[Rfam]
The family of this 76-nucleotide RNA from Callorhinchus milii is "mir-30 microRNA precursor family". The source organism's lineage runs through Eukaryota, Bilateria, Craniata, Vertebrata and Callorhinchus. About the family: This family consists of the mammalian microRNA (miRNA) precursor mir-30a. Animal miRNAs are transcribed as ~70nt precursors and subsequently processed by the Dicer enzyme to give a ~22nt product. In this case the mature sequence comes from both the 3' (miR-30) and 5' (mir-97-6) arms of the precursor. The extents of the hairpin precursors are not generally known and are estimated based on hairpin prediction. Pairs were carried over by alignment from the consensus structure, which was predicted with PFOLD.
RNA sequence: AAGGUUAGUGUAAACAUCCUACACUCUCAGCUGUGACUAGUGGAAAAGCUGAGAGGAAGGUGUUUGCUCUCACCGG
Numbered sequence: 001a002a003g004g005u006u007a008g009u010g011u012a013a014a015c016a017u018c019c020u021a022c023a024c025u026c027u028c029a030g031c032u033g034u035g036a037c038u039a040g041u042g043g044a045a046a047a048g049c050u051g052a053g054a055g056g057a058a059g060g061u062g063u064u065u066g067c068u069c070u071c072a073c074c075g076g
Stems, first nucleotide, its partner, number of pairs: 003074003008069001010067009020057001024055009